[Rfam]
RNA sequence: UCGCCCUUGAGUUUGAUCCUGGCUCAGGAUGAACGCUAGCGGCAGGCUUAACACAUGCAAGUCGAGGGGCAGCAUUUCCAGCAAUGGAAGAUGGCGACCGGCGCAAGGGUGCGUCACGCGUGAGCAACAUACCUAUCACAGGAGGAUAAUCCAUGGAAACGUGGUCUAAUACUCCAUAGAAUUGGUUUCUGGCAUCAGGAACCACUUAAAGCUACGGUGGUGAUAGAUUGGCUCGCGUGACAUUAGCUAGAUGGAGAGGUAACGGCUCCCCAUGGCGACGAUGUCUAGGGGUUCUGAGAGGAAGGUCCCCCACACUGGUACUGAGACACGGACCAGACUCCUACGGGAGGCAGCAGUGAGGAAUAUUGGACAAUGGGUGGAAACCUGAUCCAGCCAUGCCGCGUGCAGGAAGACUGCCCUAUGGGUUGUAAACUGCUUUUGUAUGGGAGCAAUAAGCUCUACGAGUAGGGUGAUGAGAGUACCAUACGAAUAAGCAUCGGCUAACUCCGUGCCAGCAGCCGCGGUAAUACGGAGGAUGCGAGCGUUAUCCGGAUUUAUUG
Numbered sequence: 001u002c003g004c005c006c007u008u009g010a011g012u013u014u015g016a017u018c019c020u021g022g023c024u025c026a027g028g029a030u031g032a033a034c035g036c037u038a039g040c041g042g043c044a045g046g047c048u049u050a051a052c053a054c055a056u057g058c059a060a061g062u063c064g065a066g067g068g069g070c071a072g073c074a075u076u077u078c079c080a081g082c083a084a085u086g087g088a089a090g091a092u093g094g095c096g097a098c099c100g101g102c103g104c105a106a107g108g109g110u111g112c113g114u115c116a117c118g119c120g121u122g123a124g125c126a127a128c129a130u131a132c133c134u135a136u137c138a139c140a141g142g143a144g145g146a147u148a149a150u151c152c153a154u155g156g157a158a159a160c161g162u163g164g165u166c167u168a169a170u171a172c173u174c175c176a177u178a179g180a181a182u183u184g185g186u187u188u189c190u191g192g193c194a195u196c197a198g199g200a201a202c203c204a205c206u207u208a209a210a211g212c213u214a215c216g217g218u219g220g221u222g223a224u225a226g227a228u229u230g231g232c233u234c235g236c237g238u239g240a241c242a243u244u245a246g247c248u249a250g251a252u253g254g255a256g257a258g259g260u261a262a263c264g265g266c267u268c269c270c271c272a273u274g275g276c277g278a279c280g281a282u283g284u285c286u287a288g289g290g291g292u293u294c295u296g297a298g299a300g301g302a303a304g305g306u307c308c309c310c311c312a313c314a315c316u317g318g319u320a321c322u323g324a325g326a327c328a329c330g331g332a333c334c335a336g337a338c339u340c341c342u343a344c345g346g347g348a349g350g351c352a353g354c355a356g357u358g359a360g361g362a363a364u365a366u367u368g369g370a371c372a373a374u375g376g377g378u379g380g381a382a383a384c385c386u387g388a389u390c391c392a393g394c395c396a397u398g399c400c401g402c403g404u405g406c407a408g409g410a411a412g413a414c415u416g417c418c419c420u421a422u423g424g425g426u427u428g429u430a431a432a433c434u435g436c437u438u439u440u441g442u443a444u445g446g447g448a449g450c451a452a453u454a455a456g457c458u459c460u461a462c463g464a465g466u467a468g469g470g471u472g473a474u475g476a477g478a479g480u481a482c483c484a485u486a487c488g489a490a491u492a493a494g495c496a497u498c499g500g501c502u503a504a505c506u507c508c509g510u511g512c513c514a515g516c517a518g519c520c521g522c523g524g525u526a527a528u529a530c531g532g533a534g535g536a537u538g539c540g541a542g543c544g545u546u547a548u549c550c551g552g553a554u555u556u557a558u559u560g
Base pairs, nucleotide, nucleotide: 009025010024011023012022013021027550028549029548030547032546033545034544035543036542037541039402040401041400042399043398044397045395046394047360052358053357054356056355057354058353061102062101063100066099067098069095070094075090076089077088078087079086080085109313110312111311118238119237120236121235122234123233124232125231128230129229133226134225135224136223137222138221139220141175142174143173144172151164152163153162154161155160181206183204184203185202186201187200189198190197191196211218212217239285240284241283246276247275248274251273252272253271254270256268257267258266288310289309290308291307292303293302294301295300315336316335317334318333319332338349339348340347341346366392368391369390370389374387375386376385377384378383405436406435407434408433416426417425418424441487442486443485444484445483446482450477456471457470458469494539495538496537497536498535505534506533507532508531509530515522516521